Shown here is a 69-nucleotide sequence from Diceros bicornis, a member of the family "mir-302 microRNA precursor family". NCBI's taxonomy places the organism under Eukaryota, Vertebrata, Tetrapoda, Theria, Diceros bicornis. Pairs were carried over by alignment from the consensus structure, which was predicted with RNAalifold. Rfam 15.1 lists 2,090 matches to the family in 516 species. Clan: mir-290 clan. On this family, see Mineno et al., Nucleic Acids Res 2006: "The expression profile of microRNAs in mouse embryos".
[Rfam]
RNA sequence: CCACCACUUAAACAUGGAUGUACUUGUUUUGAAAGUAAAAAAGGAAGCACUUCCGUGUUUUAGUGAUGG
Numbered sequence: 001c002c003a004c005c006a007c008u009u010a011a012a013c014a015u016g017g018a019u020g021u022a023c024u025u026g027u028u029u030u031g032a033a034a035g036u037a038a039a040a041a042a043g044g045a046a047g048c049a050c051u052u053c054c055g056u057g058u059u060u061u062a063g064u065g066a067u068g069g
Stems, first nucleotide, its partner, number of pairs: 001069003005065004010060009020050002023047003027043002